Rfam assigns this 91-nucleotide RNA sequence from Thiohalomonas denitrificans to the family "t44 RNA". From the family's description: This family consists of a number of bacterial RNA genes of between 135 and 170 bases in length. Lineage of the source: Bacteria > Pseudomonadati > Pseudomonadota > Thiohalomonadales > Thiohalomonas. It scores 64 bits against the family's covariance model. By type it is a small RNA.

[Rfam]
RNA sequence: CUGGGGGCGAAUAAAAUCCACACAUGUGCCGUCACGGGUAUCCGGGUGCCCCCGUAAGGGGUCGAUAUCCGAGGGUGCAUGGAGGACCAAC
Numbered sequence: 001c002u003g004g005g006g007g008c009g010a011a012u013a014a015a016a017u018c019c020a021c022a023c024a025u026g027u028g029c030c031g032u033c034a035c036g037g038g039u040a041u042c043c044g045g046g047u048g049c050c051c052c053c054g055u056a057a058g059g060g061g062u063c064g065a066u067a068u069c070c071g072a073g074g075g076u077g078c079a080u081g082g083a084g085g086a087c088c089a090a091c
Stems, first nucleotide, its partner, number of pairs: 023081008035071008048062005
Dot-bracket structure: ......................((((((((....((((((((.....(((((.....))))).))))))))..))))))))..........